The family of this 89-nucleotide sequence from Nyssa sinensis is "Small nucleolar RNA snoR109".
The family's RNA type in Rfam is H/ACA-box small nucleolar RNA.
The base pairs follow the family's consensus structure, which was predicted with WAR.
On this family, see Marker et al., Curr Biol 2002: "Experimental RNomics: identification of 140 candidates for small non-messenger RNAs in the plant Arabidopsis thaliana".
The match comes from Rfam's covariance-model search (43 bits).
Rfam links the family to the GO terms nucleolus and RNA processing.
[Rfam]
RNA sequence: CGGCUGUAGCUAUAUUGAUCCAAUGGCUGAGAAGUUAACUAGCCGGUUGUUGUUUGAGAUUUCUUUAAAAUACCGAACUUCUCACAUUG
Numbered sequence: 001c002g003g004c005u006g007u008a009g010c011u012a013u014a015u016u017g018a019u020c021c022a023a024u025g026g027c028u029g030a031g032a033a034g035u036u037a038a039c040u041a042g043c044c045g046g047u048u049g050u051u052g053u054u055u056g057a058g059a060u061u062u063c064u065u066u067a068a069a070a071u072a073c074c075g076a077a078c079u080u081c082u083c084a085c086a087u088u089g
Base pairs, nucleotide, nucleotide: 029083030082031081032080033079034078035077036076045074046073047072050068051067052066
Dot-bracket structure: ............................((((((((........(((..(((.............)))...))).))))))))......